[Rfam]
RNA sequence: CCGGUAACGGGCGAUGGGGUCCGCCUCGGUAACCGCCGGACACGCCGGCUGAUGACUCCUUCUCACAG
Numbered sequence: 001c002c003g004g005u006a007a008c009g010g011g012c013g014a015u016g017g018g019g020u021c022c023g024c025c026u027c028g029g030u031a032a033c034c035g036c037c038g039g040a041c042a043c044g045c046c047g048g049c050u051g052a053u054g055a056c057u058c059c060u061u062c063u064c065a066c067a068g
Stems, first nucleotide, its partner, number of pairs: 010025004016059006035049004